[Rfam]
RNA sequence: ACACGAUAAUACUAAACCUCCUGUGAGGGAGGGGCGGAAAGCCUACAGGGUCUCAAGGAGACAGCCGGGUUGCCGAA
Number, nucleotide and partner (000 for none) at each position: 001a000002c000003a000004c000005g000006a000007u000008a000009a000010u000011a000012c037013u036014a000015a000016a000017c032018c031019u030020c029021c028022u027023g000024u000025g000026a000027g022028g021029g020030a019031g018032g017033g000034g000035c000036g013037g012038a000039a000040a071041g070042c069043c068044u000045a000046c000047a000048g066049g065050g062051u061052c060053u000054c000055a000056a000057g000058g000059a000060g052061a051062c050063a000064g000065c049066c048067g000068g043069g042070u041071u040072g000073c000074c000075g000076a000077a000

Record summary: The family of this 77-nucleotide RNA sequence from Geobacter sp. DSM 9736 is "c-di-GMP-I riboswitch aptamer". Its family is annotated with cyclic-di-GMP binding in the Gene Ontology. The family's consensus secondary structure is taken from published work. NCBI's taxonomy places the organism under Bacteria, Pseudomonadati, Desulfuromonadia, Geobacteraceae, Geobacter.